Shown here is a 96-nucleotide RNA from Clostridium fungisolvens, a member of the family "NiCo (Nickel/Cobalt) riboswitch aptamer". The family's consensus secondary structure is taken from published work. Rfam links the family to the GO terms metal ion homeostasis and cobalt ion binding.
RNA sequence: ACAGUACAAACUGAGCAGGCGAUGGACUUUCUUAAAAGUUCGUGGGGCCGGGCCUUCAUUGGCAACAGGAUGAUAACACAUACCUGUGGGACAGUA
Numbered sequence: 001a002c003a004g005u006a007c008a009a010a011c012u013g014a015g016c017a018g019g020c021g022a023u024g025g026a027c028u029u030u031c032u033u034a035a036a037a038g039u040u041c042g043u044g045g046g047g048c049c050g051g052g053c054c055u056u057c058a059u060u061g062g063c064a065a066c067a068g069g070a071u072g073a074u075a076a077c078a079c080a081u082a083c084c085u086g087u088g089g090g091a092c093a094g095u096a
Stems, first nucleotide, its partner, number of pairs: 010095004016090001018049003022043006052063003065087005